The record is a 122-nucleotide RNA sequence from Ensete ventricosum, which matches "Small nucleolar RNA SNORD14" in Rfam. The organism belongs to Ensete, within Eukaryota. Pairs were carried over by alignment from the consensus structure, which was predicted with PFOLD. Gene Ontology terms of the family: nucleolus and RNA processing. Rfam classes the family as a C/D-box small nucleolar RNA.

RNA sequence: CGUCGAUGAUGAUAAGUUAUAAGGCUUGUUUCUCAAAACAUUCGCAGUGGCCGCCUGAGAGCUUUCGCCUCGCCGGGCUUGAGAGCUUAUGCUGCUCAAUUUUUCCUUGGAUGUCUGAGAUU
Numbered sequence: 001c002g003u004c005g006a007u008g009a010u011g012a013u014a015a016g017u018u019a020u021a022a023g024g025c026u027u028g029u030u031u032c033u034c035a036a037a038a039c040a041u042u043c044g045c046a047g048u049g050g051c052c053g054c055c056u057g058a059g060a061g062c063u064u065u066c067g068c069c070u071c072g073c074c075g076g077g078c079u080u081g082a083g084a085g086c087u088u089a090u091g092c093u094g095c096u097c098a099a100u101u102u103u104u105c106c107u108u109g110g111a112u113g114u115c116u117g118a119g120a121u122u
Stems, first nucleotide, its partner, number of pairs: 002121003061086006
Dot-bracket structure: .(((........................................................((((((..............))))))................................))).